RNA sequence: CCCUAGCCCAGAUGGAAACGGCAUCCUUUUUCUCGCUUCUUUAGCGAGGAAAAGAUAUAGUGGACAGCUGGAUCAGCU
Numbered sequence: 001c002c003c004u005a006g007c008c009c010a011g012a013u014g015g016a017a018a019c020g021g022c023a024u025c026c027u028u029u030u031u032c033u034c035g036c037u038u039c040u041u042u043a044g045c046g047a048g049g050a051a052a053a054g055a056u057a058u059a060g061u062g063g064a065c066a067g068c069u070g071g072a073u074c075a076g077c078u
Base pairs, nucleotide, nucleotide: 009070010069011068013066014065018061019060023056024055025054029051030050031049032048033047035045036044037043
A member of the RNA family "Flavo-1 RNA" from Flavobacterium hercynium, 78 nucleotides long. The family's consensus secondary structure is taken from published work. By type it is a small RNA. A search with the family's covariance model found it, with a score of 73 bits. NCBI's taxonomy places the organism under Bacteria, Bacteroidota, Flavobacteriales, Flavobacteriaceae, Flavobacterium.